[Rfam]
Nucleotides: 114
Base pairs, nucleotide, nucleotide: 010101011100012099014097015096016095021090022089024087025086026085027084028083029082030081031080032079033078039075040074041073042072046070047069048068049067050066051065052064053063
Number, partner (000 for none) and nucleotide at each position: 001000a002000a003000a004000c005000g006000g007000a008000g009000u010101g011100u012099g013000c014097g015096c016095a017000g018000g019000c020000c021090c022089u023000u024087a025086c026085c027084u028083g029082c030081g031080u032079g033078g034000a035000c036000g037000a038000c039075g040074c041073g042072g043000a044000a045000u046070c047069u048068u049067g050066a051065c052064g053063u054000a055000c056000u057000u058000c059000c060000c061000c062000a063053a064052u065051g066050u067049c068048a069047a070046g071000c072042c073041c074040g075039c076000a077000c078033c079032c080031a081030c082029g083028c084027a085026g086025g087024u088000g089022a090021g091000g092000c093000c094000c095016u096015g097014u098000a099012c100011g101010c102000a103000c104000u105000c106000c107000u108000u109000u110000a111000g112000c113000u114000u

A member of the RNA family "mraW RNA" from Corynebacterium jeikeium, 114 nucleotides long. Rfam's curators put it in the seed alignment. Pairs were carried over by alignment from the consensus structure, which is taken from published work. Rfam classes the family as a cis-regulatory element.